[Rfam]
RNA sequence: AGCUAAAUGAUGAGCGUGGAUCUUUAAAUCUCAUGACGGUCAUCUGAGAUGCUUUCAUUAGUGUACAGGAAGAUGUGAUUCCCAUCUCUGAUGGCU
Numbered sequence: 001a002g003c004u005a006a007a008u009g010a011u012g013a014g015c016g017u018g019g020a021u022c023u024u025u026a027a028a029u030c031u032c033a034u035g036a037c038g039g040u041c042a043u044c045u046g047a048g049a050u051g052c053u054u055u056c057a058u059u060a061g062u063g064u065a066c067a068g069g070a071a072g073a074u075g076u077g078a079u080u081c082c083c084a085u086c087u088c089u090g091a092u093g094g095c096u
Stems, first nucleotide, its partner, number of pairs: 001096004050065003
A member of the RNA family "Small nucleolar RNA Z161/Z228" from Musa troglodytarum, 96 nucleotides long. Its family is annotated with RNA processing and nucleolus in the Gene Ontology. Clan: SNORD35 clan. A search with the family's covariance model found it, with a score of 45 bits. Rfam classes the family as a C/D-box small nucleolar RNA. The organism belongs to Musa, within Eukaryota.